[Rfam]
RNA sequence: GGCUGCUCUGAAGAUGGUGAGUAUCUCAACUGUUCCCAAUCAGUUACGUGUCAAACUUCUUCCACUCUUUCUCCCCGUCUCACUACUGCACUUGACUGGUCUUAA
Numbered sequence: 001g002g003c004u005g006c007u008c009u010g011a012a013g014a015u016g017g018u019g020a021g022u023a024u025c026u027c028a029a030c031u032g033u034u035c036c037c038a039a040u041c042a043g044u045u046a047c048g049u050g051u052c053a054a055a056c057u058u059c060u061u062c063c064a065c066u067c068u069u070u071c072u073c074c075c076c077g078u079c080u081c082a083c084u085a086c087u088g089c090a091c092u093u094g095a096c097u098g099g100u101c102u103u104a105a
Stems, first nucleotide, its partner, number of pairs: 001101005007095002010093002015088001016084006039066001043062001
Dot-bracket structure: (((((.((.((...(((((((.................(...(..................)...)............))))))...)...)))).)))))....
Rfam assigns this 105-nucleotide sequence from Colobus angolensis to the family "Y RNA". Y RNAs are components of the Ro ribonucleoprotein particle (Ro RNP), in association with Ro60 and La proteins. The Y RNAs and Ro60 and La proteins are well conserved, but the function of the Ro RNP is not known. In humans the RNA component can be one of four small RNAs -- hY1, hY3, hY4 and hY5. These small RNAs are predicted to fold into a conserved secondary structure containing three stem structures. The largest of the four, hY1, contains an additional hairpin. This family includes a significant number of annotated pseudogenes and the model is expected to discriminate poorly between real and Y RNA related pseudogenes. Lineage of the source: Eukaryota > Deuterostomia > Euteleostomi > Eutheria > Colobus angolensis. A search with the family's covariance model found it, with a score of 42 bits. Rfam 15.1 lists 26,986 matches to the family in 650 species. It is annotated as a non-coding RNA gene.